[Rfam]
RNA: Small nucleolar RNA SNORD22
Organism: Sapayoa aenigma
RNA sequence: CCCCCAUGAGGAAAACCCCACGUGUCUGACCCCCCUGCUGGGCCCAGUACCUGCCAAGGUGGAACCCACUGGUGCCCCCGGGGGGAAAGGAGGACAUCGAGUCCAGAGGGGACAGUCUGAGGGGG
Numbered sequence: 001c002c003c004c005c006a007u008g009a010g011g012a013a014a015a016c017c018c019c020a021c022g023u024g025u026c027u028g029a030c031c032c033c034c035c036u037g038c039u040g041g042g043c044c045c046a047g048u049a050c051c052u053g054c055c056a057a058g059g060u061g062g063a064a065c066c067c068a069c070u071g072g073u074g075c076c077c078c079c080g081g082g083g084g085g086a087a088a089g090g091a092g093g094a095c096a097u098c099g100a101g102u103c104c105a106g107a108g109g110g111g112a113c114a115g116u117c118u119g120a121g122g123g124g125g
Stems, first nucleotide, its partner, number of pairs: 001124004
Dot-bracket structure: ((((....................................................................................................................)))).